This 146-nucleotide RNA from Colius striatus belongs to the Rfam family "Small nucleolar RNA U109".
The source organism's lineage runs through Eukaryota, Chordata, Gnathostomata, Dinosauria and Colius.
Rfam links the family to the GO terms RNA processing and nucleolus.
A search with the family's covariance model found it, with a score of 118 bits.
A reference for the family is Gu et al. (2005), "A novel experimental approach for systematic identification of box H/ACA snoRNAs from eukaryotes", Nucleic Acids Res.
By type it is an H/ACA-box small nucleolar RNA.
[Rfam]
RNA sequence: CUGCAUGUUAAAAAAACUCCCAAAUUCUGCUCUUCAUUCCCAUGAAGUGCAGGAGUAUUUAUAUAACAUGCUACAGAAAACAAGGAGUUUUCAGGGCUGCCAGUCUUGUAGUAAAGGCUGAGUGGUAGUAUAGGUCUCCUACAUUU
Numbered sequence: 001c002u003g004c005a006u007g008u009u010a011a012a013a014a015a016a017c018u019c020c021c022a023a024a025u026u027c028u029g030c031u032c033u034u035c036a037u038u039c040c041c042a043u044g045a046a047g048u049g050c051a052g053g054a055g056u057a058u059u060u061a062u063a064u065a066a067c068a069u070g071c072u073a074c075a076g077a078a079a080a081c082a083a084g085g086a087g088u089u090u091u092c093a094g095g096g097c098u099g100c101c102a103g104u105c106u107u108g109u110a111g112u113a114a115a116g117g118c119u120g121a122g123u124g125g126u127a128g129u130a131u132a133g134g135u136c137u138c139c140u141a142c143a144u145u146u
Base pairs, nucleotide, nucleotide: 003071004070005069006068007067008066026053027052028051029050030049032047033046084139085138086137087136096126097125100122101120102119103118104117105116106115107114